[Rfam]
RNA sequence: GUUACUCAGUGAUGAGGUGUGGAACAAGCACUGAACAGCAUCUGACACCUGUGGGGGAGUGGCUCUGCUCUGUUUAUUCUGAGGGCAGC
Number, nucleotide and partner (000 for none) at each position: 001g089002u088003u087004a000005c085006u000007c000008a000009g000010u000011g000012a000013u000014g000015a000016g000017g000018u000019g000020u000021g000022g000023a000024a000025c000026a000027a000028g000029c000030a000031c000032u000033g000034a000035a000036c000037a000038g000039c000040a000041u000042c000043u000044g000045a000046c000047a000048c000049c000050u000051g000052u000053g000054g000055g000056g000057g000058a000059g000060u000061g000062g000063c000064u000065c000066u000067g000068c000069u000070c000071u000072g000073u000074u000075u000076a000077u000078u000079c000080u000081g000082a000083g000084g000085g005086c000087a003088g002089c001